Annotation: The family of this 74-nucleotide RNA sequence from Paramagnetospirillum magneticum is "Makes More Granules Regulator RNA (mmgR)". The organism belongs to Paramagnetospirillum magneticum, within Bacteria.
RNA sequence: CUUUCCUGCUUUCUUGGACGUUUCCUCCCUAAACUCAAGCCGCUGGGGCAACCCAGCGGUUUUUUUUGAUUUUU
Numbered sequence: 001c002u003u004u005c006c007u008g009c010u011u012u013c014u015u016g017g018a019c020g021u022u023u024c025c026u027c028c029c030u031a032a033a034c035u036c037a038a039g040c041c042g043c044u045g046g047g048g049c050a051a052c053c054c055a056g057c058g059g060u061u062u063u064u065u066u067u068g069a070u071u072u073u074u
Base pairs, nucleotide, nucleotide: 008019010017011016040059041058042057043056044055045054046053047052
Gene Ontology terms of the family: DNA-templated transcription, termination, response to nitrogen compound and protein binding. Rfam describes the family as follows. SuhB later renamed mmgR (makes more granules regulator) was a putative non-coding RNA found multiple times in the Agrobacterium tumefaciens genome and related alpha-proteobacteria. Clan: suhB sRNA clan. The base pairs follow the family's consensus structure. The family's RNA type in Rfam is small RNA. A search with the family's covariance model found it, with a score of 49 bits.